[Rfam]
RNA sequence: CAUAUCUUUAGAUAACACUAGCGUAUAAUUUCGGGAAUAUGGCCCAAAGUAUCUACCAGAUCACCGUAAAUGGUCUGACUACGCAGGUUAAGAGGUAAUUU
Numbered sequence: 001c002a003u004a005u006c007u008u009u010a011g012a013u014a015a016c017a018c019u020a021g022c023g024u025a026u027a028a029u030u031u032c033g034g035g036a037a038u039a040u041g042g043c044c045c046a047a048a049g050u051a052u053c054u055a056c057c058a059g060a061u062c063a064c065c066g067u068a069a070a071u072g073g074u075c076u077g078a079c080u081a082c083g084c085a086g087g088u089u090a091a092g093a094g095g096u097a098a099u100u101u
Stems, first nucleotide, its partner, number of pairs: 018087002021084005029048003033045003057077007
A member of the RNA family "Purine riboswitch aptamer" from Lentibacillus populi, 101 nucleotides long. Its family is annotated with purine nucleobase biosynthetic process in the Gene Ontology.